RNA sequence: GAGUCUAGCAACUAUGCGAGUAUUUGAGUGUCAAACUCGGAUGCGUAAAGAAACUGAAUUCGUGGGAUGGCAAAUGGGAUUGUUGUUUUGCAGCGAUCCCAUGUGCUUGCACCAUGGGCCAGUCCUCGACUUGUCUUGGAUUGCGCUGGAGCAUAAGUGUUAGGACCCGAAAGAUGGUGAACUAUGCCUGAAUAGGGUGAAGCCAGAGGAAACUCUGGUGGAGGCUCGUAGCGAUUCUGACGUGCAAAUCGAUCGUCAAAUUUGGGUAUAGGGGCGAAAGACUAAUCGAACCAUCUAGUAGCUGGUU
Numbered sequence: 001g002a003g004u005c006u007a008g009c010a011a012c013u014a015u016g017c018g019a020g021u022a023u024u025u026g027a028g029u030g031u032c033a034a035a036c037u038c039g040g041a042u043g044c045g046u047a048a049a050g051a052a053a054c055u056g057a058a059u060u061c062g063u064g065g066g067a068u069g070g071c072a073a074a075u076g077g078g079a080u081u082g083u084u085g086u087u088u089u090g091c092a093g094c095g096a097u098c099c100c101a102u103g104u105g106c107u108u109g110c111a112c113c114a115u116g117g118g119c120c121a122g123u124c125c126u127c128g129a130c131u132u133g134u135c136u137u138g139g140a141u142u143g144c145g146c147u148g149g150a151g152c153a154u155a156a157g158u159g160u161u162a163g164g165a166c167c168c169g170a171a172a173g174a175u176g177g178u179g180a181a182c183u184a185u186g187c188c189u190g191a192a193u194a195g196g197g198u199g200a201a202g203c204c205a206g207a208g209g210a211a212a213c214u215c216u217g218g219u220g221g222a223g224g225c226u227c228g229u230a231g232c233g234a235u236u237c238u239g240a241c242g243u244g245c246a247a248a249u250c251g252a253u254c255g256u257c258a259a260a261u262u263u264g265g266g267u268a269u270a271g272g273g274g275c276g277a278a279a280g281a282c283u284a285a286u287c288g289a290a291c292c293a294u295c296u297a298g299u300a301g302c303u304g305g306u307u
Base pairs, nucleotide, nucleotide: 005163006162007161008160009159010158013155014154015153016152017151020044021043022042025039026038027037028036029035048055061116062115063114064113065112069107070106071105072104118146119145120143121142122141123140124139125138129134166305167304169302173295174294175293176292177291178290182271183270184269185268186267187266188265189264190263191262192261193259195227196226197225198224202219203218204217205216206215207214208213231256232255233254234253236252237251239250240249273283274282
Eukaryotic large subunit ribosomal RNA: a 307-nucleotide part of an RNA from Mitosporidium daphniae.
It scores 3158 bits against the family's covariance model.
The source organism's lineage runs through Eukaryota, Opisthokonta, Fungi, Microsporidia and Mitosporidium.